[Rfam]
Nucleotides: 088
Base pairs, nucleotide, nucleotide: 003086004085005084006083007082009080011078012077013076014075015074017072018071019070023067024066025065026064027063028062029061030060033057034056035055036054037053
Number, partner (000 for none) and nucleotide at each position: 001000u002000a003086a004085a005084u006083u007082c008000a009080u010000u011078u012077u013076g014075g015074a016000u017072c018071u019070g020000a021000a022000c023067u024066c025065u026064u027063g028062u029061g030060g031000g032000u033057c034056u035055g036054c037053a038000a039000g040000c041000a042000u043000u044000u045000u046000u047000c048000u049000a050000a051000u052000c053037u054036g055035u056034a057033g058000c059000a060030c061029c062028a063027u064026g065025a066024g067023a068000u069000u070019c071018a072017g073000c074015u075014c076013u077012a078011g079000c080009g081000u082007g083006g084005a085004u086003u087000u088000c

Rfam assigns this 88-nucleotide RNA sequence from Megaselia scalaris to the family "mir-998 microRNA precursor family". It scores 76 bits against the family's covariance model. The base pairs follow the family's consensus structure, which was predicted with RNAalifold. Its family is annotated with RISC complex and miRNA-mediated post-transcriptional gene silencing in the Gene Ontology.